A member of the RNA family "Nematode snoRNA ceN88" from Oesophagostomum dentatum, 145 nucleotides long.
Lineage of the source: Eukaryota > Bilateria > Rhabditida > Strongyloidea > Oesophagostomum.
The literature on the family includes a 2007 paper in BMC Mol Biol by Jia et al., "Systematic identification of non-coding RNA 2,2,7-trimethylguanosine cap structures in Caenorhabditis elegans".
The family has 6 seed sequences and 99 matches in Rfam 15.1.
The family's consensus secondary structure was predicted with RNAalifold.
[Rfam]
RNA sequence: AACCUUCUUUCUUGGCGCUGCUAUCGUUUUAAAGAUAGAAGUGUAUGUAAUAGAAGGAAAAUAAUGCCCAUGUAGGGUAUUCGGAUCUCCUUCGGUGCCACACCCUGAAUUUUGUGUGGUGUCAUCCUCUGGGUUCGAGACAUUC
Numbered sequence: 001a002a003c004c005u006u007c008u009u010u011c012u013u014g015g016c017g018c019u020g021c022u023a024u025c026g027u028u029u030u031a032a033a034g035a036u037a038g039a040a041g042u043g044u045a046u047g048u049a050a051u052a053g054a055a056g057g058a059a060a061a062u063a064a065u066g067c068c069c070a071u072g073u074a075g076g077g078u079a080u081u082c083g084g085a086u087c088u089c090c091u092u093c094g095g096u097g098c099c100a101c102a103c104c105c106u107g108a109a110u111u112u113u114g115u116g117u118g119g120u121g122u123c124a125u126c127c128u129c130u131g132g133g134u135u136c137g138a139g140a141c142a143u144u145c
Stems, first nucleotide, its partner, number of pairs: 003057006010050001015044004021038004067077003080139009094123002098119006